[Rfam]
RNA sequence: AAUACAGUCUGCCUAAUCCAUUGUUUGACUUAAAACCUUUGUGUAUAAAGGCAAGCAAGGAGCGGAGGAACCAACUCUGGGGCGUAUCUCACAGACAGUGAGAAGUUAAGAGUGAACAGUGAAAGUUAAUAAAUAUUUAACUCAGCACUCACGAUUCAGCACUUUCAAGAGAAGGACAUCUCUCAGUCCUAGCCCGUCAGCUAACUUCGUCGGCAUUGAGAGGAGACUG
Dot-bracket structure: .........((((...(((.......................................)))((((((....((....))(((.....(((..............................................................................)))..((((........))))...))).........)))))).))))..............
RNA: c-di-AMP riboswitch aptamer (ydaO/yuaA leader)